[Rfam]
RNA sequence: UUCUUAUCGAGAGAAGUGGAGGGAUUUGGCCCUAUGAUACUUCGGCAGCGGAUUUUUACUAUGGUAAAAAUACUGUGCUAAUUCCAACAAACAUCUGUUUGAGAGAUAAGAG
Numbered sequence: 001u002u003c004u005u006a007u008c009g010a011g012a013g014a015a016g017u018g019g020a021g022g023g024a025u026u027u028g029g030c031c032c033u034a035u036g037a038u039a040c041u042u043c044g045g046c047a048g049c050g051g052a053u054u055u056u057u058a059c060u061a062u063g064g065u066a067a068a069a070a071u072a073c074u075g076u077g078c079u080a081a082u083u084c085c086a087a088c089a090a091a092c093a094u095c096u097g098u099u100u101g102a103g104a105g106a107u108a109a110g111a112g
Stems, first nucleotide, its partner, number of pairs: 001112008013043005021032003026087004044079004049075002052071006083104001088101005
Shown here is a 112-nucleotide RNA from Bacillus sp. FJAT-27986, a member of the family "SAM riboswitch aptamer (S box leader)".
Rfam links the family to the GO term regulation of gene expression.